This 244-nucleotide RNA sequence belongs to the Rfam family "Streptomyces sRNA 4677".
[Rfam]
RNA sequence: GGGCUGCGGGCGGUAAAAGACCAAAGAACCCUGGGGAAAAACCCACCCAACCAACCAAACCUUGCCGCGGUCACUCUGGCGGGUGAAACCGGUCGGUACGGGUGGCGUUCGGGUGGUUCGGACGGGCAGUCUCGGGCCGAGGCGACUCCACGUCGCCUCCACAACCCCACACAUGCAUCGGCCCCCGCCGGGACUGGCAUCCCAGUGCGAGGGCCUGACCAACAAGGAAGAGAGCAGAUCUUCC
Numbered sequence: 001g002g003g004c005u006g007c008g009g010g011c012g013g014u015a016a017a018a019g020a021c022c023a024a025a026g027a028a029c030c031c032u033g034g035g036g037a038a039a040a041a042c043c044c045a046c047c048c049a050a051c052c053a054a055c056c057a058a059a060c061c062u063u064g065c066c067g068c069g070g071u072c073a074c075u076c077u078g079g080c081g082g083g084u085g086a087a088a089c090c091g092g093u094c095g096g097u098a099c100g101g102g103u104g105g106c107g108u109u110c111g112g113g114u115g116g117u118u119c120g121g122a123c124g125g126g127c128a129g130u131c132u133c134g135g136g137c138c139g140a141g142g143c144g145a146c147u148c149c150a151c152g153u154c155g156c157c158u159c160c161a162c163a164a165c166c167c168c169a170c171a172c173a174u175g176c177a178u179c180g181g182c183c184c185c186c187g188c189c190g191g192g193a194c195u196g197g198c199a200u201c202c203c204a205g206u207g208c209g210a211g212g213g214c215c216u217g218a219c220c221a222a223c224a225a226g227g228a229a230g231a232g233a234g235c236a237g238a239u240c241u242u243c244c
Stems, first nucleotide, its partner, number of pairs: 003223001005221002012066004071086006101154002103150003180215005186209003190203004226244005
The family has 12 seed sequences and 563 matches in Rfam 15.1. From the family's description: Located in the intergenic region between anti-sigma factor SCO4677 gene and a putative regulatory protein gene SCO4676. scr4677 expression requires the SCO4677 activity and scr4677 sRNA itself seem to affect the levels of the SCO4676-associated transcripts. The family's RNA type in Rfam is small RNA. On this family, see Hindra et al., PLoS One 2014: "Complex intra-operonic dynamics mediated by a small RNA in Streptomyces coelicolor".